[Rfam]
RNA sequence: UGUCUCCUCCACCUACUCCUUUGGUGGAUUCAGGCCUGAAGCACAGACUUCAGGCUUUUUUUU
Numbered sequence: 001u002g003u004c005u006c007c008u009c010c011a012c013c014u015a016c017u018c019c020u021u022u023g024g025u026g027g028a029u030u031c032a033g034g035c036c037u038g039a040a041g042c043a044c045a046g047a048c049u050u051c052a053g054g055c056u057u058u059u060u061u062u063u
Stems, first nucleotide, its partner, number of pairs: 008028006033056008

Annotation: Betaproteobacteria toxic small RNA: a 63-nucleotide RNA from Cognatundibacterium luofuense. Overexpression in amino aid rich medium attenuates growth, suggesting role in repressing amino acid intake and metabolism. A search with the family's covariance model found it, with a score of 60 bits. NCBI's taxonomy places the organism under Bacteria, Pseudomonadati, Betaproteobacteria, Burkholderiales, Cognatundibacterium. Pairs were carried over by alignment from the consensus structure, which was predicted with WAR. On this family, see Kimelman et al., Genome Res 2012: "A vast collection of microbial genes that are toxic to bacteria".